Overview
The family of this 146-nucleotide RNA from Peribacillus faecalis is "EGFOA RNA". The match comes from Rfam's covariance-model search (44 bits). The base pairs follow the family's consensus structure, which is taken from published work.
RNA sequence: AGAUACCCAGAUUGAUCCUAAUACUUCUUCCAUUUAGUUAUUAGGAAUCAAACAUCCCGUGCUCGUUGCAAUUUGCAAGGUGGGUUGUAGUACGUUUCGUGGUGAAACGGUUGGUAAAGCGAGACCUGGGCGACUCAGAGUGCAUA
Numbered sequence: 001a002g003a004u005a006c007c008c009a010g011a012u013u014g015a016u017c018c019u020a021a022u023a024c025u026u027c028u029u030c031c032a033u034u035u036a037g038u039u040a041u042u043a044g045g046a047a048u049c050a051a052a053c054a055u056c057c058c059g060u061g062c063u064c065g066u067u068g069c070a071a072u073u074u075g076c077a078a079g080g081u082g083g084g085u086u087g088u089a090g091u092a093c094g095u096u097u098c099g100u101g102g103u104g105a106a107a108c109g110g111u112u113g114g115u116a117a118a119g120c121g122a123g124a125c126c127u128g129g130g131c132g133a134c135u136c137a138g139a140g141u142g143c144a145u146a
Stems, first nucleotide, its partner, number of pairs: 006130005059125002062123004066078005086144004094108004109135005